[Rfam]
RNA sequence: UUUCCGAUAGCUUUCUGUUCAAAGCUCUCCGAAAGGAGCAGUGAAGAUCAGAACUUAACCCUAAGUAUUUG
Numbered sequence: 001u002u003u004c005c006g007a008u009a010g011c012u013u014u015c016u017g018u019u020c021a022a023a024g025c026u027c028u029c030c031g032a033a034a035g036g037a038g039c040a041g042u043g044a045a046g047a048u049c050a051g052a053a054c055u056u057a058a059c060c061c062u063a064a065g066u067a068u069u070u071g
Base pairs, nucleotide, nucleotide: 009055010054015051016050017049

This 71-nucleotide part of an RNA from Mollisia scopiformis belongs to the Rfam family "Ascomycota telomerase RNA". It is annotated as a non-coding RNA gene. Taxonomically the source falls in Mollisia (Eukaryota, saccharomyceta, leotiomyceta, sordariomyceta).